[Rfam]
Nucleotides: 051
Base pairs, nucleotide, nucleotide: 003048004047005046006045007044008043009042010041011040012039013038014037015036016035017034018033019032020031
Number, partner (000 for none) and nucleotide at each position: 001000g002000c003048g004047g005046a006045g007044a008043a009042c010041c011040u012039u013038u014037u015036g016035a017034a018033u019032c020031a021000c022000u023000a024000u025000a026000u027000u028000a029000c030000u031020u032019g033018a034017u035016u036015c037014a038013a039012a040011a041010g042009g043008u044007u045006c046005u047004c048003c049000c050000a051000a